[Rfam]
Nucleotides: 078
Stems, first nucleotide, its partner, number of pairs: 005073001007071008016062004021058008
Number, partner (000 for none) and nucleotide at each position: 001000u002000c003000g004000u005073u006000c007071u008070u009069a010068g011067u012066u013065u014064u015000a016062g017061a018060c019059g020000u021058g022057u023056u024055u025054u026053g027052g028051u029000g030000u031000g032000u033000u034000u035000g036000g037000g038000g039000a040000g041000a042000u043000u044000a045000a046000u047000u048000c049000c050000g051028a052027u053026u054025g055024a056023a057022a058021c059019c060018g061017u062016c063000c064014a065013a066012a067011a068010c069009u070008g071007a072000g073005g074000c075000u076000g077000a078000c

Annotation: Rfam assigns this 78-nucleotide RNA sequence from Drosophila busckii to the family "mir-957 microRNA precursor family". The family's consensus secondary structure was predicted with RNAalifold.